[Rfam]
RNA sequence: CCGCGAUAAAGGCAAACCCUGAGUGAUCAGGGGACGCAAAGCAAAGGGUCUUACAACAUACAAGGAAGUAUGGGGAUAUAUAUAGAAAAUAUCCUGACGCAAUUAGGGAAGUAGUUUAAAAAAGACAGCCUUACUGCCGAA
Numbered sequence: 001c002c003g004c005g006a007u008a009a010a011g012g013c014a015a016a017c018c019c020u021g022a023g024u025g026a027u028c029a030g031g032g033g034a035c036g037c038a039a040a041g042c043a044a045a046g047g048g049u050c051u052u053a054c055a056a057c058a059u060a061c062a063a064g065g066a067a068g069u070a071u072g073g074g075g076a077u078a079u080a081u082a083u084a085g086a087a088a089a090u091a092u093c094c095u096g097a098c099g100c101a102a103u104u105a106g107g108g109a110a111g112u113a114g115u116u117u118a119a120a121a122a123a124g125a126c127a128g129c130c131u132u133a134c135u136g137c138c139g140a141a
Base pairs, nucleotide, nucleotide: 012037013036017032018031019030020029021028022027040135041134043132045131046130047129048126049125050124051123052122
RNA: c-di-GMP-I riboswitch aptamer
Organism: Candidatus Brocadia sapporoensis